[Rfam]
Nucleotides: 083
Stems, first nucleotide, its partner, number of pairs: 012037002018031005040077004047073002049069003056063002
Number, partner (000 for none) and nucleotide at each position: 001000u002000a003000u004000u005000a006000u007000a008000u009000u010000u011000g012037g013036c014000a015000a016000a017000c018031c019030c020029g021028u022027c023000g024000a025000a026000a027022g028021g029020c030019g031018g032000u033000g034000g035000c036013g037012c038000a039000a040077a041076g042075c043074u044000a045000a046000a047073g048072g049069g050068u051067c052000u053000a054000a055000g056063u057062a058000g059000a060000a061000g062057u063056a064000u065000a066000u067051g068050a069049c070000a071000g072048c073047c074043a075042g076041u077040u078000g079000c080000a081000a082000u083000c